Record summary
Shown here is a 156-nucleotide RNA sequence from Fructobacillus pseudoficulneus, a member of the family "Lysine riboswitch aptamer".
RNA sequence: AUAAGUAAUAGAGGUCGCAACCAACAAGAGUAACUAACCGCGUGUUAGUGAAAGGGGCGGUUGCCGAAGUUUGAUGGGGUCAAAGCCAUCUUGCUGGGCCAAUAGUUAAGAGCUAUUGGACUGUCGCUGCAAGCGCAGCGGGGAGCUAUUCAACUG
Numbered sequence: 001a002u003a004a005g006u007a008a009u010a011g012a013g014g015u016c017g018c019a020a021c022c023a024a025c026a027a028g029a030g031u032a033a034c035u036a037a038c039c040g041c042g043u044g045u046u047a048g049u050g051a052a053a054g055g056g057g058c059g060g061u062u063g064c065c066g067a068a069g070u071u072u073g074a075u076g077g078g079g080u081c082a083a084a085g086c087c088a089u090c091u092u093g094c095u096g097g098g099c100c101a102a103u104a105g106u107u108a109a110g111a112g113c114u115a116u117u118g119g120a121c122u123g124u125c126g127c128u129g130c131a132a133g134c135g136c137a138g139c140g141g142g143g144a145g146c147u148a149u150u151c152a153a154c155u156g
Stems, first nucleotide, its partner, number of pairs: 007150005017064006025056001033049006068095003073090005096122002099119008124141007